[Rfam]
RNA: CRISPR RNA direct repeat element
RNA sequence: GUUACAGACGAACCCUUGUAGGAUUGAAGU
Number, nucleotide and partner (000 for none) at each position: 001g000002u000003u000004a000005c000006a000007g000008a000009c000010g000011a025012a024013c000014c022015c021016u000017u000018g000019u000020a000021g015022g014023a000024u012025u011026g000027a000028a000029g000030u000